[Rfam]
The record is a 471-nucleotide RNA sequence from Calonectris borealis, which matches "Vertebrate telomerase RNA" in Rfam. The family's consensus secondary structure is taken from published work. Gene Ontology terms of the family: telomerase catalytic core complex, telomere maintenance via telomerase and telomerase activity. About the family: Telomerase is a ribonucleoprotein reverse transcriptase that synthesises telomeric DNA. Telomerase RNAs differ greatly in sequence and structure between vertebrates, ciliates and yeasts, but they share a 5' pseudoknot structure close to the template sequence. Vertebrate telomerase RNAs have a 3' H/ACA snoRNA-like domain. Taxonomically the source falls in Calonectris (Eukaryota, Amniota, Sauria, Procellariiformes). It is annotated as a non-coding RNA gene. It scores 161 bits against the family's covariance model.

RNA sequence: UCGCGUGGCGGGUGGGGAGGCCCUGAUGUGACUAACCCUAAUGGCUGCUGCCGCGCUCCCCGCGCCCGUCCGCUGUUUUACUCGCUGACUUUCAGCGGACGAGGGGAGUAGCCCGGGGGGGGCGGGGGAGGGAAGGGAGCGGCGGUGGGGGGAAGGGGAUCCGCCAUCCAAAAAAACGUCAGCGAGGGGGCUCCUCACCCCGGCCCGCCCUGGGGUCCCUGUCCCCCGACGCAGCCGGGGGCUCGCCGCGGAGGUUCCCGCCGCCGCACCGUCCGGAGGCCGCGGUCGGCCGGCUCCUGCCACUGCCGCCGCGAAGAGUUCGUCUCUGUCAGCCUCGGCGGCGGCCGGGAGCGGAGGGGCGCGCCCCCGCGCCGGGGGGCCCCAGCAGAGCAAAACGGGAGCGGCGCCCCCGGGCCAACCGCCGCGCUUCCCUCAGCCGCGGGGCGCGCGGCCGGCGCCGCUCCGACACGC
Numbered sequence: 001u002c003g004c005g006u007g008g009c010g011g012g013u014g015g016g017g018a019g020g021c022c023c024u025g026a027u028g029u030g031a032c033u034a035a036c037c038c039u040a041a042u043g044g045c046u047g048c049u050g051c052c053g054c055g056c057u058c059c060c061c062g063c064g065c066c067c068g069u070c071c072g073c074u075g076u077u078u079u080a081c082u083c084g085c086u087g088a089c090u091u092u093c094a095g096c097g098g099a100c101g102a103g104g105g106g107a108g109u110a111g112c113c114c115g116g117g118g119g120g121g122g123c124g125g126g127g128g129a130g131g132g133a134a135g136g137g138a139g140c141g142g143c144g145g146u147g148g149g150g151g152g153a154a155g156g157g158g159a160u161c162c163g164c165c166a167u168c169c170a171a172a173a174a175a176a177c178g179u180c181a182g183c184g185a186g187g188g189g190g191c192u193c194c195u196c197a198c199c200c201c202g203g204c205c206c207g208c209c210c211u212g213g214g215g216u217c218c219c220u221g222u223c224c225c226c227c228g229a230c231g232c233a234g235c236c237g238g239g240g241g242c243u244c245g246c247c248g249c250g251g252a253g254g255u256u257c258c259c260g261c262c263g264c265c266g267c268a269c270c271g272u273c274c275g276g277a278g279g280c281c282g283c284g285g286u287c288g289g290c291c292g293g294c295u296c297c298u299g300c301c302a303c304u305g306c307c308g309c310c311g312c313g314a315a316g317a318g319u320u321c322g323u324c325u326c327u328g329u330c331a332g333c334c335u336c337g338g339c340g341g342c343g344g345c346c347g348g349g350a351g352c353g354g355a356g357g358g359g360c361g362c363g364c365c366c367c368c369g370c371g372c373c374g375g376g377g378g379g380c381c382c383c384a385g386c387a388g389a390g391c392a393a394a395a396c397g398g399g400a401g402c403g404g405c406g407c408c409c410c411c412g413g414g415c416c417a418a419c420c421g422c423c424g425c426g427c428u429u430c431c432c433u434c435a436g437c438c439g440c441g442g443g444g445c446g447c448g449c450g451g452c453c454g455g456c457g458c459c460g461c462u463c464c465g466a467c468a469c470g471c
Base pairs, nucleotide, nucleotide: 004207005206007204009202010200011199012198013197014196015195016194017193019192020191021190022189023188055109056108057107058106059105067101068100069099070098071097072096073095074094075093084183085182086181087180088179089178090176091175092174210385211384212383213382214381215380216379239366240365241364242363244361245360246359247358254352255351256350257349258348259347260346263342264341265340266339267338281313282312283311284310285309287308288307289306290305292301293300294299315327316326317325318324399463400462401461402460403459404458405457406456407455408454422451423450424449425448426447429444430443431442432441